A member of the RNA family "TPP riboswitch aptamer (THI element)" from Povalibacter uvarum, 136 nucleotides long. The match comes from Rfam's covariance-model search (66 bits). The family's consensus secondary structure is taken from published work. Rfam describes the family as follows. Vitamin B(1) in its active form thiamin pyrophosphate (TPP) is an essential coenzyme that is synthesised by coupling of pyrimidine and thiazole moieties in bacteria.
RNA sequence: GCGGCCGCCUUGGGGUGGCCCUGACUUGGGCCUGAGAUGCCGAACGCGACGUGUCAUUGGGAUGGUCGCUCAUCGGUGGACCCGUUGAACCUGAUCCGGUUAAUACCGGCGUAGGGAGCAGGUCAUGCGAUGCAUU
Number, nucleotide and partner (000 for none) at each position: 001g000002c000003g000004g000005c000006c000007g123008c122009c121010u120011u084012g083013g082014g081015g000016u078017g032018g031019c030020c029021c028022u000023g000024a000025c000026u000027u000028g021029g020030g019031c018032c017033u000034g000035a000036g000037a000038u000039g077040c076041c075042g074043a073044a000045c000046g000047c000048g000049a000050c000051g000052u000053g000054u000055c000056a000057u000058u000059g000060g000061g000062a000063u000064g000065g000066u000067c000068g000069c000070u000071c000072a000073u043074c042075g041076g040077u039078g016079g000080a000081c014082c013083c012084g011085u000086u000087g000088a000089a000090c115091c114092u113093g112094a000095u000096c109097c108098g107099g106100u000101u000102a000103a000104u000105a000106c099107c098108g097109g096110c000111g000112u093113a092114g091115g090116g000117a000118g000119c000120a010121g009122g008123u007124c000125a000126u000127g000128c000129g000130a000131u000132g000133c000134a000135u000136u000